[Rfam]
RNA: RNase MRP
Organism: Kwoniella shandongensis
RNA sequence: ACCCAAGCACAAGAAUCGCUUUUUCGCAGCUCCCGAACUGGGUGACUCUUUCUCUAUUGAAGGAUGCUCACCUAUCCUCAUGCUGUGGGUUGAAAGUCCCCGGAGCCUCUGUCAUACAUCUUUCAUCCUACUUCUUUACGAAUACCAUCACAACCUUUUUUCCUCAUUUCGACGAUUGGAUCCUCUCUUUCUUGGGGUUUCGUUACGAAGUUCGACUAUGACAUGUCUAUUAUUCCCUUUCGUGUUUAUUUUUUCUUUCUCUCUCCGUUUUGUCAAUGCUGGAAGGAGGGGAGGAGAGGAAAGAGAGCUUGAGAGUGAUCUUGGAAAGCAUUCGUAUUUUAACACAUACGAAAAAUAGAUCAUCUCUCUUUUCGCUUCCUCUUCUUCUUUCCACUUUGAUACUCGAGAGAGAAGAAGAGUUCAGCGAUUAGGAAGAACGAUGUUCAUAUUACAAGGUCGUUCUUCGUUUUGAACUUCGAGUUGGUUCGAGGAGAAAUGUGGAGUGUUUUUUUGUCUGACAUAUUUCUCUUUCGUCGAAGGAGAGCUGUUACCUUUUUUCUUUUGUUUUGUCUUGAUCAACGGUUCAACCAACCGAAGAUCUCUGACCAAAAGGAAAGUUUCAGUCGUCAUGACCUCAAACGCUCCACAUCCUUUCGUUGAAAAGGAUAAAAGUCAUUCCGCCUCAUCUAUACCAAACUCAUAUCGAAAAGUGAAUCACAUCGGUUCCUUUAGACGAAGAUACGAGUCGGGAUCAAGACUUGCUUGUGAUUCACUCUUUCGUAUGAGGGAUGAGGAUUUCGGAAGGAUGAUAGCUCGUGAAGAGUUGGUUGAUAAUUGGAAAGGAUUGAUGAAAUUACGCGCUCAUAGUUAUAGUUAUGCGAUUGUCUCUUGUCAUCCCUCUUUUCUCCAUAAUAGGGGAAAAGAGGGGAGAGAUAACUCGAUGGGGCUUACUCUGUGUCUUGGG
Numbered sequence: 001a002c003c004c005a006a007g008c009a010c011a012a013g014a015a016u017c018g019c020u021u022u023u024u025c026g027c028a029g030c031u032c033c034c035g036a037a038c039u040g041g042g043u044g045a046c047u048c049u050u051u052c053u054c055u056a057u058u059g060a061a062g063g064a065u066g067c068u069c070a071c072c073u074a075u076c077c078u079c080a081u082g083c084u085g086u087g088g089g090u091u092g093a094a095a096g097u098c099c100c101c102g103g104a105g106c107c108u109c110u111g112u113c114a115u116a117c118a119u120c121u122u123u124c125a126u127c128c129u130a131c132u133u134c135u136u137u138a139c140g141a142a143u144a145c146c147a148u149c150a151c152a153a154c155c156u157u158u159u160u161u162c163c164u165c166a167u168u169u170c171g172a173c174g175a176u177u178g179g180a181u182c183c184u185c186u187c188u189u190u191c192u193u194g195g196g197g198u199u200u201c202g203u204u205a206c207g208a209a210g211u212u213c214g215a216c217u218a219u220g221a222c223a224u225g226u227c228u229a230u231u232a233u234u235c236c237c238u239u240u241c242g243u244g245u246u247u248a249u250u251u252u253u254u255c256u257u258u259c260u261c262u263c264u265c266c267g268u269u270u271u272g273u274c275a276a277u278g279c280u281g282g283a284a285g286g287a288g289g290g291g292a293g294g295a296g297a298g299g300a301a302a303g304a305g306a307g308c309u310u311g312a313g314a315g316u317g318a319u320c321u322u323g324g325a326a327a328g329c330a331u332u333c334g335u336a337u338u339u340u341a342a343c344a345c346a347u348a349c350g351a352a353a354a355a356u357a358g359a360u361c362a363u364c365u366c367u368c369u370u371u372u373c374g375c376u377u378c379c380u381c382u383u384c385u386u387c388u389u390u391c392c393a394c395u396u397u398g399a400u401a402c403u404c405g406a407g408a409g410a411g412a413a414g415a416a417g418a419g420u421u422c423a424g425c426g427a428u429u430a431g432g433a434a435g436a437a438c439g440a441u442g443u444u445c446a447u448a449u450u451a452c453a454a455g456g457u458c459g460u461u462c463u464u465c466g467u468u469u470u471g472a473a474c475u476u477c478g479a480g481u482u483g484g485u486u487c488g489a490g491g492a493g494a495a496a497u498g499u500g501g502a503g504u505g506u507u508u509u510u511u512u513g514u515c516u517g518a519c520a521u522a523u524u525u526c527u528c529u530u531u532c533g534u535c536g537a538a539g540g541a542g543a544g545c546u547g548u549u550a551c552c553u554u555u556u557u558u559c560u561u562u563u564g565u566u567u568u569g570u571c572u573u574g575a576u577c578a579a580c581g582g583u584u585c586a587a588c589c590a591a592c593c594g595a596a597g598a599u600c601u602c603u604g605a606c607c608a609a610a611a612g613g614a615a616a617g618u619u620u621c622a623g624u625c626g627u628c629a630u631g632a633c634c635u636c637a638a639a640c641g642c643u644c645c646a647c648a649u650c651c652u653u654u655c656g657u658u659g660a661a662a663a664g665g666a667u668a669a670a671a672g673u674c675a676u677u678c679c680g681c682c683u684c685a686u687c688u689a690u691a692c693c694a695a696a697c698u699c700a701u702a703u704c705g706a707a708a709a710g711u712g713a714a715u716c717a718c719a720u721c722g723g724u725u726c727c728u729u730u731a732g733a734c735g736a737a738g739a740u741a742c743g744a745g746u747c748g749g750g751a752u753c754a755a756g757a758c759u760u761g762c763u764u765g766u767g768a769u770u771c772a773c774u775c776u777u778u779c780g781u782a783u784g785a786g787g788g789a790u791g792a793g794g795a796u797u798u799c800g801g802a803a804g805g806a807u808g809a810u811a812g813c814u815c816g817u818g819a820a821g822a823g824u825u826g827g828u829u830g831a832u833a834a835u836u837g838g839a840a841a842g843g844a845u846u847g848a849u850g851a852a853a854u855u856a857c858g859c860g861c862u863c864a865u866a867g868u869u870a871u872a873g874u875u876a877u878g879c880g881a882u883u884g885u886c887u888c889u890u891g892u893c894a895u896c897c898c899u900c901u902u903u904u905c906u907c908c909a910u911a912a913u914a915g916g917g918g919a920a921a922a923g924a925g926g927g928g929a930g931a932g933a934u935a936a937c938u939c940g941a942u943g944g945g946g947c948u949u950a951c952u953c954u955g956u957g958u959c960u961u962g963g964g
Stems, first nucleotide, its partner, number of pairs: 002964006008957004014883006024088007041072005094949003098946004718850005726843004826836004885933006